Shown here is a 54-nucleotide RNA sequence from Salmo trutta, a member of the family "UnaL2 LINE 3' element". Rfam classes the family as a cis-regulatory element.

RNA sequence: AGCAAUUUCUCCUGUAAGUUGUUCUGGAUAAGAACGUCUGCUAAAUGACAAAAA
Numbered sequence: 001a002g003c004a005a006u007u008u009c010u011c012c013u014g015u016a017a018g019u020u021g022u023u024c025u026g027g028a029u030a031a032g033a034a035c036g037u038c039u040g041c042u043a044a045a046u047g048a049c050a051a052a053a054a
Base pairs, nucleotide, nucleotide: 013043014041015040016039020036021035022034023033024032025031